[Rfam]
RNA sequence: GGCAUAUUUCGCACAGGCGGAGCUCGACCGCCGACCGAAGUGAUGAUUGCCUUCAUUGACGAUCACCGGUCGGCGUAUGGGGUCGAGCCGAUCUGCAGGGUGCUGCCGAUCGCCCCG
Numbered sequence: 001g002g003c004a005u006a007u008u009u010c011g012c013a014c015a016g017g018c019g020g021a022g023c024u025c026g027a028c029c030g031c032c033g034a035c036c037g038a039a040g041u042g043a044u045g046a047u048u049g050c051c052u053u054c055a056u057u058g059a060c061g062a063u064c065a066c067c068g069g070u071c072g073g074c075g076u077a078u079g080g081g082g083u084c085g086a087g088c089c090g091a092u093c094u095g096c097a098g099g100g101u102g103c104u105g106c107c108g109a110u111c112g113c114c115c116c117g
Stems, first nucleotide, its partner, number of pairs: 016032005078117005089112002092109002095106004